[Rfam]
RNA sequence: CGCACUGCAUGGUGCGUGCACGCGACAGUUUAUUCCCGCUGGGUGUUCGAAGGACAGGACGAUAUAAACCCAGUAUCUGGCAUCGUUGUUUUUCCUGGCUUCGUGCAUGUUCAACCUGGUAUCUUUAUUGAUACAGUA
Numbered sequence: 001c002g003c004a005c006u007g008c009a010u011g012g013u014g015c016g017u018g019c020a021c022g023c024g025a026c027a028g029u030u031u032a033u034u035c036c037c038g039c040u041g042g043g044u045g046u047u048c049g050a051a052g053g054a055c056a057g058g059a060c061g062a063u064a065u066a067a068a069c070c071c072a073g074u075a076u077c078u079g080g081c082a083u084c085g086u087u088g089u090u091u092u093u094c095c096u097g098g099c100u101u102c103g104u105g106c107a108u109g110u111u112c113a114a115c116c117u118g119g120u121a122u123c124u125u126u127a128u129u130g131a132u133a134c135a136g137u138a
Stems, first nucleotide, its partner, number of pairs: 002060001005057003015053001017051001018046004023041002026038001028036001063127002066124001068122001070119004080106004
This 138-nucleotide RNA sequence from Molossus molossus belongs to the Rfam family "Small nucleolar RNA SNORA8". Rfam's curators write: ACA8 is a member of the H/ACA class of snoRNA that guide the sites of modification of uridines to pseudouridines. The family's consensus secondary structure was predicted with RNAfold.